Small nucleolar RNA SNORD73: a 70-nucleotide RNA from Ramphastos sulfuratus. It is annotated as a C/D-box small nucleolar RNA. Pairs were carried over by alignment from the consensus structure, which was predicted with PFOLD.
Nucleotides: 070
Stems, first nucleotide, its partner, number of pairs: 001070004
Number, partner (000 for none) and nucleotide at each position: 001070a002069a003068u004067g005000a006000a007000u008000g009000a010000u011000g012000a013000c014000a015000a016000a017000a018000u019000g020000u021000u022000u023000c024000g025000g026000u027000c028000c029000c030000a031000g032000a033000u034000g035000a036000c037000g038000u039000g040000g041000a042000a043000u044000g045000a046000u047000u048000a049000c050000a051000u052000u053000u054000u055000c056000c057000c058000a059000u060000u061000u062000u063000c064000u065000g066000a067004c068003a069002u070001u